[Rfam]
RNA sequence: AUAUGAUAUGAUGAGCUUCAUACAUGUAAUUGCUGACAUGAUAGCAUUUUAUCAUGUAUUAGCUCUAGCUAAUCAUAG
Numbered sequence: 001a002u003a004u005g006a007u008a009u010g011a012u013g014a015g016c017u018u019c020a021u022a023c024a025u026g027u028a029a030u031u032g033c034u035g036a037c038a039u040g041a042u043a044g045c046a047u048u049u050u051a052u053c054a055u056g057u058a059u060u061a062g063c064u065c066u067a068g069c070u071a072a073u074c075a076u077a078g
Stems, first nucleotide, its partner, number of pairs: 002077004028048001031046004

Shown here is a 78-nucleotide RNA from Capsicum annuum, a member of the family "Small nucleolar RNA Z102/R77". Pairs were carried over by alignment from the consensus structure, which was predicted with PFOLD. The match comes from Rfam's covariance-model search (47 bits). The organism belongs to Capsicum, within Eukaryota. The family is grouped with related families in Rfam's "SNORD44 clan".